Shown here is a 57-nucleotide RNA sequence from Devosia equisanguinis, a member of the family "terC RNA". Rfam classes the family as a cis-regulatory element.

[Rfam]
RNA sequence: UCGUAACGCCGGGCCCCUCUGGUCAUGGAUUCUCCAUGGCGAUGUCGGAGUUACUCC
Numbered sequence: 001u002c003g004u005a006a007c008g009c010c011g012g013g014c015c016c017c018u019c020u021g022g023u024c025a026u027g028g029a030u031u032c033u034c035c036a037u038g039g040c041g042a043u044g045u046c047g048g049a050g051u052u053a054c055u056c057c
Stems, first nucleotide, its partner, number of pairs: 006051002009048004022040008